[Rfam]
RNA sequence: AUGCUUAUCUGGCAGGGGACAUACCAGGGCGAGGCUUAUCUGUUACACUCCAGAUGUGCCAACCUCUGUGAGUUCCCCAAAUGUGGGAAAAUGGACUGCAUAAUUUGUGGUAGUGGGGGACUUGUUCUCACUCUCCCCUG
Dot-bracket structure: ...........((((((......))((((.(.(((.(((((..........))))).)))..))))).(.(.((.((.......)).))..).).))))...............((((((..((....))...)))))).
A member of the RNA family "U1 spliceosomal RNA" from Neotoma lepida, 140 nucleotides long. The family's consensus secondary structure is taken from published work. The organism belongs to Neotoma, within Eukaryota.